[Rfam]
RNA sequence: GCCGAGCCAAGUAGCGAUGGCUUGUAACCCAAGUGGGGGCAAUGAGGUUUGGGAUGGUCGCUGGAGUCCGAGCCUGGACGGAUGCGGUUAUGUAAGUGACUGGUCUGCCCGUACCAAGUCAGGUAGCUGAACCAUGCGGGUUGGGCGAAGGCCCGAGCCACAUGGGUCUUAGAGCAGUGGGCACUGCGCCAGGCUGGCUUCACAGAGCAGCGACAACUACUCGCUCUUGACGGUGGAAGGAUAACAGGCCGGCGCACAUCGCAUCCACCACACCCGGUUCGCUCCUCUGGCCAAACCACAACCUUU
Numbered sequence: 001g002c003c004g005a006g007c008c009a010a011g012u013a014g015c016g017a018u019g020g021c022u023u024g025u026a027a028c029c030c031a032a033g034u035g036g037g038g039g040c041a042a043u044g045a046g047g048u049u050u051g052g053g054a055u056g057g058u059c060g061c062u063g064g065a066g067u068c069c070g071a072g073c074c075u076g077g078a079c080g081g082a083u084g085c086g087g088u089u090a091u092g093u094a095a096g097u098g099a100c101u102g103g104u105c106u107g108c109c110c111g112u113a114c115c116a117a118g119u120c121a122g123g124u125a126g127c128u129g130a131a132c133c134a135u136g137c138g139g140g141u142u143g144g145g146c147g148a149a150g151g152c153c154c155g156a157g158c159c160a161c162a163u164g165g166g167u168c169u170u171a172g173a174g175c176a177g178u179g180g181g182c183a184c185u186g187c188g189c190c191a192g193g194c195u196g197g198c199u200u201c202a203c204a205g206a207g208c209a210g211c212g213a214c215a216a217c218u219a220c221u222c223g224c225u226c227u228u229g230a231c232g233g234u235g236g237a238a239g240g241a242u243a244a245c246a247g248g249c250c251g252g253c254g255c256a257c258a259u260c261g262c263a264u265c266c267a268c269c270a271c272a273c274c275c276g277g278u279u280c281g282c283u284c285c286u287c288u289g290g291c292c293a294a295a296c297c298a299c300a301a302c303c304u305u306u
Base pairs, nucleotide, nucleotide: 001040002039003038004023005022006021007020008019009018028037029036030035044305045304046303047302048301049300052297053296055294057292058290059289060288063285064284065283066282069281070280071279072278073277074276076275077274080266081265082264083263084262085261086260087259088258091256092255100252101251102250103249104248105247106246107245109240110239112238114236115235116234118231119230120229121228122227123226125225126224127223129168130167132165133164134163135162136161138159139158141156142155143154144153145152146151169174176221177220178219179218180217187212188211189210194205195204196203
RNA: Plant signal recognition particle RNA
Organism: Musa troglodytarum